RNA sequence: AGGGGGACGGGCGAUGGCGUCCGCCCGGGGCUUCGAGCCCGAACCGCCCGCUCGGGCUGAUGACGCCUGUUCUACC
Numbered sequence: 001a002g003g004g005g006g007a008c009g010g011g012c013g014a015u016g017g018c019g020u021c022c023g024c025c026c027g028g029g030g031c032u033u034c035g036a037g038c039c040c041g042a043a044c045c046g047c048c049c050g051c052u053c054g055g056g057c058u059g060a061u062g063a064c065g066c067c068u069g070u071u072c073u074a075c076c
Stems, first nucleotide, its partner, number of pairs: 010025004016067006046057004

A member of the RNA family "Fluoride riboswitch aptamer (crcB RNA motif)", 76 nucleotides long.
It is one of the family's seed sequences.
The base pairs follow the family's consensus structure, which is taken from published work.